[Rfam]
Rfam assigns this 140-nucleotide sequence from Aquarana catesbeiana to the family "U12 minor spliceosomal RNA". Rfam links the family to the GO terms pre-mRNA branch point binding, U12 snRNP and mRNA branch site recognition. By type it is a spliceosomal small nuclear RNA. Rfam 15.1 lists 2,106 matches to the family in 1,170 species. Lineage of the source: Eukaryota > Metazoa > Bilateria > Teleostomi > Aquarana. The base pairs follow the family's consensus structure.
RNA sequence: UUGCCUUAAACUAAUGAGUAAGGAAAAUAACAAACGGGUAAAACCUGUUUCCUCACUAAGUCUGAGAUGAAUUUUUGAAUGGGUUUUCUCUUGGAGGAUCUGCUUACUUUGCAGGAUCUUCAGGUGAUGAGAUCUACCCA
Numbered sequence: 001u002u003g004c005c006u007u008a009a010a011c012u013a014a015u016g017a018g019u020a021a022g023g024a025a026a027a028u029a030a031c032a033a034a035c036g037g038g039u040a041a042a043a044c045c046u047g048u049u050u051c052c053u054c055a056c057u058a059a060g061u062c063u064g065a066g067a068u069g070a071a072u073u074u075u076u077g078a079a080u081g082g083g084u085u086u087u088c089u090c091u092u093g094g095a096g097g098a099u100c101u102g103c104u105u106a107c108u109u110u111g112c113a114g115g116a117u118c119u120u121c122a123g124g125u126g127a128u129g130a131g132a133u134c135u136a137c138c139c140a
Base pairs, nucleotide, nucleotide: 004023005022006021007020008019032050033049034048035047036046037045038044052066053065054064055063080140081139082138083137084136085132086131087130088129090124091123093121094120095119096118097117099115100114101113102112103111